Shown here is a 146-nucleotide part of an RNA from Ichthyophthirius multifiliis, a member of the family "Eukaryotic small subunit ribosomal RNA".
For this family Rfam cites "Crystal structure of the ribosome at 5.5 A resolution" (Yusupov et al., Science, 2001).
The family's consensus secondary structure is taken from published work.
The source organism's lineage runs through Eukaryota, Sar, Oligohymenophorea, Hymenostomatida and Ichthyophthirius.

RNA sequence: CCGCCCGUCGCUUGUAGUAACGAAUGGUCUGGUGAACCUUCUGGACCGAGGUCGCAAGGCUUUGGGAAGUUAAGUAAACCCUACCAUUUGGAACAACAAGAAGUCGUAACAAGGUAUCUGUAGGUGAACCUGCAGAUGGAUCAUUA
Numbered sequence: 001c002c003g004c005c006c007g008u009c010g011c012u013u014g015u016a017g018u019a020a021c022g023a024a025u026g027g028u029c030u031g032g033u034g035a036a037c038c039u040u041c042u043g044g045a046c047c048g049a050g051g052u053c054g055c056a057a058g059g060c061u062u063u064g065g066g067a068a069g070u071u072a073a074g075u076a077a078a079c080c081c082u083a084c085c086a087u088u089u090g091g092a093a094c095a096a097c098a099a100g101a102a103g104u105c106g107u108a109a110c111a112a113g114g115u116a117u118c119u120g121u122a123g124g125u126g127a128a129c130c131u132g133c134a135g136a137u138g139g140a141u142c143a144u145u146a
Base pairs, nucleotide, nucleotide: 001113003110006106007105009103011100012099013098014097015096017094018093021090022089023088024087025086026085027084028083031080032079033078036075037074039072042069046065047064048063049062050061051060052059053058115138116137117136118135119134120133121132122131123130124129